A member of the RNA family "mir-1302 microRNA precursor family" from Equus asinus, 52 nucleotides long. The family has 24 seed sequences and 16,160 matches in Rfam 15.1. Taxonomically the source falls in Equus (Eukaryota, Deuterostomia, Sarcopterygii, Dipnotetrapodomorpha).
RNA sequence: UUCUUAGUAUAAGUAUAUCCCAUGUAAUAUUUGGGAUGUAUUUAUAGUAAAA
Numbered sequence: 001u002u003c004u005u006a007g008u009a010u011a012a013g014u015a016u017a018u019c020c021c022a023u024g025u026a027a028u029a030u031u032u033g034g035g036a037u038g039u040a041u042u043u044a045u046a047g048u049a050a051a052a
Stems, first nucleotide, its partner, number of pairs: 006048001008046005014040003018036004022031001